[Rfam]
RNA sequence: GGUCUGUGAUGAGUUUUGUCCUGUGUUAUCUGAAUAUAAAUUUGGAGAUUAUCAAUUUAGCUCUAGAAUUACUCUGAGACCUG
Numbered sequence: 001g002g003u004c005u006g007u008g009a010u011g012a013g014u015u016u017u018g019u020c021c022u023g024u025g026u027u028a029u030c031u032g033a034a035u036a037u038a039a040a041u042u043u044g045g046a047g048a049u050u051a052u053c054a055a056u057u058u059a060g061c062u063c064u065a066g067a068a069u070u071a072c073u074c075u076g077a078g079a080c081c082u083g
Stems, first nucleotide, its partner, number of pairs: 001081004

The family of this 83-nucleotide RNA sequence from Chunga burmeisteri is "Small nucleolar RNA SNORD45".
On this family, see Kiss-Laszlo et al., Cell 1996: "Site-specific ribose methylation of preribosomal RNA: a novel function for small nucleolar RNAs".
Lineage of the source: Eukaryota > Chordata > Archosauria > Neoaves > Chunga.
Pairs were carried over by alignment from the consensus structure, which was predicted with PFOLD.
By type it is a C/D-box small nucleolar RNA.
The match comes from Rfam's covariance-model search (53 bits).